A member of the RNA family "c-di-GMP-I-GGC riboswitch aptamer" from Litchfieldia salsa, 80 nucleotides long. The base pairs follow the family's consensus structure, which is taken from published work.

RNA sequence: AUAGUCAUGGGCAAACUAUGUGAAAGCAUAGGACGCAAAGCCACGGGUCUAAACACAGUAUGACAGCCGGGUUGCAUAGA
Numbered sequence: 001a002u003a004g005u006c007a008u009g010g011g012c013a014a015a016c017u018a019u020g021u022g023a024a025a026g027c028a029u030a031g032g033a034c035g036c037a038a039a040g041c042c043a044c045g046g047g048u049c050u051a052a053a054c055a056c057a058g059u060a061u062g063a064c065a066g067c068c069g070g071g072u073u074g075c076a077u078a079g080a
Stems, first nucleotide, its partner, number of pairs: 003077001011036002016031006034066001039073004044069003047064003
Taxonomically the source falls in Litchfieldia (Bacteria, Bacillati, Bacillota, Caryophanales).